Xanthomonas sRNA sX9: a 75-nucleotide RNA from Rhodoferax saidenbachensis. NCBI's taxonomy places the organism under Bacteria, Pseudomonadati, Betaproteobacteria, Burkholderiales, Rhodoferax. The family's consensus secondary structure was predicted with RNAalifold. The match comes from Rfam's covariance-model search (55 bits). On this family, see Schmidtke et al., Nucleic Acids Res 2011: "Genome-wide transcriptome analysis of the plant pathogen Xanthomonas identifies sRNAs with putative virulence functions". It is annotated as a small RNA. Rfam 15.1 lists 309 matches to the family in 52 species.
[Rfam]
RNA sequence: ACGUACAGGAAGUACGUUCCGGUUCCUGUGCUCCGUCCGCCUAGCCUGACAGGCGCUCGCUACGCUUUCUCAGCC
Numbered sequence: 001a002c003g004u005a006c007a008g009g010a011a012g013u014a015c016g017u018u019c020c021g022g023u024u025c026c027u028g029u030g031c032u033c034c035g036u037c038c039g040c041c042u043a044g045c046c047u048g049a050c051a052g053g054c055g056c057u058c059g060c061u062a063c064g065c066u067u068u069c070u071c072a073g074c075c
Base pairs, nucleotide, nucleotide: 002016003015004014005013006012020035021034022033025030046073047072048071049070051068052067